A member of the RNA family "Small nucleolar RNA SNORD22" from Piaya cayana, 128 nucleotides long. The family has 49 seed sequences and 1,081 matches in Rfam 15.1. Pairs were carried over by alignment from the consensus structure, which was predicted with PFOLD.
RNA sequence: CCCCCAUGAGGAAACCCCCACGCGUCCGACCCCCCUCGCGCUGCGCCAGAGCCUGCGAAGGCCGAACCCACUGGUGACCACGGGGGGGACGGGGGGACGCCCCGUCCAGAGGGGACGGUCUGAGGGGG
Number, nucleotide and partner (000 for none) at each position: 001c127002c126003c125004c124005c000006a000007u000008g000009a000010g000011g000012a000013a000014a000015c000016c000017c000018c000019c000020a000021c000022g000023c000024g000025u000026c000027c000028g000029a000030c000031c000032c000033c000034c000035c000036u000037c000038g000039c000040g000041c000042u000043g000044c000045g000046c000047c000048a000049g000050a000051g000052c000053c000054u000055g000056c000057g000058a000059a000060g000061g000062c000063c000064g000065a000066a000067c000068c000069c000070a000071c000072u000073g000074g000075u000076g000077a000078c000079c000080a000081c000082g000083g000084g000085g000086g000087g000088g000089a000090c000091g000092g000093g000094g000095g000096g000097a000098c000099g000100c000101c000102c000103c000104g000105u000106c000107c000108a000109g000110a000111g000112g000113g000114g000115a000116c000117g000118g000119u000120c000121u000122g000123a000124g004125g003126g002127g001128g000